[Rfam]
RNA sequence: ACCACUGAGCCAUCUCUCCAGUCCAAGGUGGUUUUUUAAAAAUAUAAUUUAUUGGGCUGGAGAGAUGGCUCAGCAGU
Numbered sequence: 001a002c003c004a005c006u007g008a009g010c011c012a013u014c015u016c017u018c019c020a021g022u023c024c025a026a027g028g029u030g031g032u033u034u035u036u037u038a039a040a041a042a043u044a045u046a047a048u049u050u051a052u053u054g055g056g057c058u059g060g061a062g063a064g065a066u067g068g069c070u071c072a073g074c075a076g077u
Stems, first nucleotide, its partner, number of pairs: 002076001005073020

A member of the RNA family "mir-3473 microRNA precursor family" from Mus musculus, 77 nucleotides long.
The match comes from Rfam's covariance-model search (75 bits).
NCBI's taxonomy places the organism under Eukaryota, Teleostomi, Tetrapoda, Murinae, Mus.
Its family is annotated with miRNA-mediated post-transcriptional gene silencing, RISC complex and cellular response to mechanical stimulus in the Gene Ontology.